[Rfam]
RNA sequence: GGGCAGGAUGUGUGGCGUGGGCCUACGCCCACCCCACGUUCCCUUAUUCGCACUGGCGUGCUCAACGGGAACCAUCCUGCCCUGCGGGGCU
Numbered sequence: 001g002g003g004c005a006g007g008a009u010g011u012g013u014g015g016c017g018u019g020g021g022c023c024u025a026c027g028c029c030c031a032c033c034c035c036a037c038g039u040u041c042c043c044u045u046a047u048u049c050g051c052a053c054u055g056g057c058g059u060g061c062u063c064a065a066c067g068g069g070a071a072c073c074a075u076c077c078u079g080c081c082c083u084g085c086g087g088g089g090c091u
Stems, first nucleotide, its partner, number of pairs: 001082009012037004017032001019030003040070004050061004
RNA: traJ-II RNA
Organism: Bilophila wadsworthia